RNA sequence: UGGGAGAAUCUGUAAAGCUCAGGAGGGAUAGCGCCUAAGCUAUUUCUUUUUUUCUUUCUUUUUUGCAGAAAUAUCAUCUGCGGCGCUAUCUAUCCUGAGUUUCAUGGGUUCUUCCU
Numbered sequence: 001u002g003g004g005a006g007a008a009u010c011u012g013u014a015a016a017g018c019u020c021a022g023g024a025g026g027g028a029u030a031g032c033g034c035c036u037a038a039g040c041u042a043u044u045u046c047u048u049u050u051u052u053u054c055u056u057u058c059u060u061u062u063u064u065g066c067a068g069a070a071a072u073a074u075c076a077u078c079u080g081c082g083g084c085g086c087u088a089u090c091u092a093u094c095c096u097g098a099g100u101u102u103c104a105u106g107g108g109u110u111c112u113u114c115c116u
Stems, first nucleotide, its partner, number of pairs: 010107001016101009026091010
Rfam assigns this 116-nucleotide RNA from Gossypium mustelinum to the family "MIR390 microRNA precursor family". On this family, see Gustafson et al., Nucleic Acids Res 2005: "ASRP: the Arabidopsis Small RNA Project Database". It scores 103 bits against the family's covariance model. Rfam 15.1 lists 649 matches to the family in 206 species. Pairs were carried over by alignment from the consensus structure, which was predicted with WAR.